Description:
The record is a 30-nucleotide sequence from Methanocaldococcus jannaschii, which matches "CRISPR RNA direct repeat element" in Rfam. NCBI's taxonomy places the organism under Archaea, Methanococci, Methanococcales, Methanocaldococcaceae, Methanocaldococcus jannaschii.
RNA sequence: GUUAAAAUCAGACCGAUUCGGAAUGGAAAC
Numbered sequence: 001g002u003u004a005a006a007a008u009c010a011g012a013c014c015g016a017u018u019c020g021g022a023a024u025g026g027a028a029a030c
Base pairs, nucleotide, nucleotide: 013026014025015024017022